RNA: Mammalian CPEB3 ribozyme
Organism: Alligator mississippiensis
RNA sequence: UUGGAAGUUCGAGGCCAUAGCACAAGCGCUCACAGUGUGGCCUGUCGAAUUCCAAUGAAUCUGUGUAUUUUGCU
Numbered sequence: 001u002u003g004g005a006a007g008u009u010c011g012a013g014g015c016c017a018u019a020g021c022a023c024a025a026g027c028g029c030u031c032a033c034a035g036u037g038u039g040g041c042c043u044g045u046c047g048a049a050u051u052c053c054a055a056u057g058a059a060u061c062u063g064u065g066u067a068u069u070u071u072g073c074u
Stems, first nucleotide, its partner, number of pairs: 013042004019074004024069002026038003046063002049060004